[Rfam]
RNA: Alphaproteobacterial sRNA ar45
RNA sequence: GCCCAAUUUCGCACGUGCCUGUGGUCGUGUGUCAGUCGGUGGGUAUCCGGACAAGAGGCCGGACAGCCGCCAAGGAAAAGGGACCCAGCAUCUCUCUCAAGGGAUGCGCCGCUUGAAGGGUCUCUUGGACUUGCAACCGUGACUGACAGCCGGAGGCGAACCGGCGCACCCCGCUCUCAACGGGGGACGCGACUUAAAGCAACGACGGAGCGGGCUUUU
Numbered sequence: 001g002c003c004c005a006a007u008u009u010c011g012c013a014c015g016u017g018c019c020u021g022u023g024g025u026c027g028u029g030u031g032u033c034a035g036u037c038g039g040u041g042g043g044u045a046u047c048c049g050g051a052c053a054a055g056a057g058g059c060c061g062g063a064c065a066g067c068c069g070c071c072a073a074g075g076a077a078a079a080g081g082g083a084c085c086c087a088g089c090a091u092c093u094c095u096c097u098c099a100a101g102g103g104a105u106g107c108g109c110c111g112c113u114u115g116a117a118g119g120g121u122c123u124c125u126u127g128g129a130c131u132u133g134c135a136a137c138c139g140u141g142a143c144u145g146a147c148a149g150c151c152g153g154a155g156g157c158g159a160a161c162c163g164g165c166g167c168a169c170c171c172c173g174c175u176c177u178c179a180a181c182g183g184g185g186g187a188c189g190c191g192a193c194u195u196a197a198a199g200c201a202a203c204g205a206c207g208g209a210g211c212g213g214g215c216u217u218u219u
Base pairs, nucleotide, nucleotide: 001215002214003213004212009205010204011203016201017200018199023194024193025192026191027190028189029188030187038071039070040069041068042067046063047062048061049060050059079097080096081095082094083093098186
Dot-bracket structure: ((((....(((....(((....((((((((.......(((((...(((((........)))))...))))).......(((((.........)))))(.......................................................................................)))))))))....))).)))......))))....